[Rfam]
Nucleotides: 084
Base pairs, nucleotide, nucleotide: 001084002083003082004081
Number, partner (000 for none) and nucleotide at each position: 001084g002083a003082g004081c005000g006000a007000u008000g009000a010000a011000g012000u013000u014000a015000a016000c017000u018000c019000a020000c021000a022000a023000g024000u025000a026000a027000u028000g029000g030000a031000u032000g033000g034000g035000u036000c037000c038000a039000u040000u041000a042000c043000c044000a045000c046000c047000g048000u049000c050000c051000g052000a053000u054000a055000a056000c057000u058000u059000g060000g061000c062000g063000a064000c065000a066000g067000c068000a069000a070000g071000u072000g073000c074000c075000g076000u077000c078000u079000g080000a081004g082003c083002u084001c

Notes
small nucleolar RNA snoR114: an 84-nucleotide RNA from Citrus x clementina. It is annotated as a C/D-box small nucleolar RNA. Taxonomically the source falls in Citrus (Eukaryota, Tracheophyta, eudicotyledons, Gunneridae). The match comes from Rfam's covariance-model search (48 bits). On this family, see Chen and Wu, Nucleic Acids Res 2009: "Mining small RNA sequencing data: a new approach to identify small nucleolar RNAs in Arabidopsis".